This 78-nucleotide sequence from Paramuricea clavata belongs to the Rfam family "mir-268 microRNA precursor family". A reference for the family is Grad et al. (2003), "Computational and experimental identification of C. elegans microRNAs", Mol Cell. The match comes from Rfam's covariance-model search (47 bits).
[Rfam]
RNA sequence: UCAAUAUAUAAUUCAAAACAAGACGCAGUUUGAGACAGUCUCAAACUGCGUCUUGUUUUGAAUUAUAUAUUGAAUUCU
Numbered sequence: 001u002c003a004a005u006a007u008a009u010a011a012u013u014c015a016a017a018a019c020a021a022g023a024c025g026c027a028g029u030u031u032g033a034g035a036c037a038g039u040c041u042c043a044a045a046c047u048g049c050g051u052c053u054u055g056u057u058u059u060g061a062a063u064u065a066u067a068u069a070u071u072g073a074a075u076u077c078u
Stems, first nucleotide, its partner, number of pairs: 008066005014060006021053013